A member of the RNA family "Clostridiales-1 RNA" from Catonella morbi, 173 nucleotides long.
RNA sequence: UGGUACAAGUGUCAAAAGCAUUAAAAUUCGAGAGGGGCUUGCUUGCAAAAGAAUUUUACAUCUUUUGACGCGCAAACAAUAUGAAUAAGCAGCCAUUUUUCGAAGAAAAAUGAGUGGAUUAUGAAUAUUGUUGCAAGGACCCCUGAGGCAUAAGCCGUAGCAAUCCUGUAUCA
Number, nucleotide and partner (000 for none) at each position: 001u173002g172003g171004u170005a169006c168007a167008a000009g000010u000011g069012u068013c067014a066015a000016a000017a063018g062019c000020a000021u000022u058023a057024a056025a055026a054027u053028u052029c051030g000031a000032g000033a000034g000035g044036g043037g042038c000039u000040u000041g000042c037043u036044u035045g000046c000047a000048a000049a000050a000051g029052a028053a027054u026055u025056u024057u023058a022059c000060a000061u000062c018063u017064u000065u000066u014067g013068a012069c011070g000071c000072g000073c000074a000075a132076a131077c130078a129079a128080u127081a126082u125083g000084a000085a122086u121087a120088a119089g000090c000091a000092g115093c114094c112095a111096u110097u109098u108099u107100u106101c105102g000103a000104a000105g101106a100107a099108a098109a097110a096111u095112g094113a000114g093115u092116g000117g000118a000119u088120u087121a086122u085123g000124a000125a082126u081127a080128u079129u078130g077131u076132u075133g000134c000135a000136a000137g166138g165139a164140c000141c000142c000143c160144u000145g000146a000147g156148g155149c154150a000151u000152a000153a000154g149155c148156c147157g000158u000159a000160g143161c000162a000163a000164u139165c138166c137167u007168g006169u005170a004171u003172c002173a001
The match comes from Rfam's covariance-model search (63 bits).
The family has 194 seed sequences and 1,172 matches in Rfam 15.1.